The family of this 100-nucleotide sequence is "Pyrrolysine insertion sequence mttB". The family has 23 seed sequences and 416 matches in Rfam 15.1. Rfam's curators put it in the seed alignment.
RNA sequence: UAGGCAGACGCCAAGAUACCUGACGGCCAGGCUGGCCAUGAGAAGACAAUGACCACUCUUCUACCAGCUCUUUCCGGUGCAAACACCCUCUAUGGUGCAG
Number, nucleotide and partner (000 for none) at each position: 001u000002a000003g012004g000005c000006a000007g000008a000009c000010g000011c000012c003013a000014a000015g000016a000017u000018a000019c000020c000021u000022g000023a000024c000025g032026g000027c000028c000029a000030g000031g000032c025033u000034g061035g060036c000037c000038a000039u000040g000041a000042g000043a000044a000045g000046a000047c000048a000049a000050u000051g000052a000053c000054c000055a000056c000057u000058c000059u000060u035061c034062u000063a000064c000065c000066a000067g000068c000069u000070c000071u000072u000073u000074c000075c000076g000077g098078u000079g096080c095081a000082a000083a000084c000085a000086c000087c000088c000089u000090c000091u000092a000093u000094g000095g080096u079097g000098c077099a000100g000

Rfam links the family to the GO term pyrrolysine incorporation.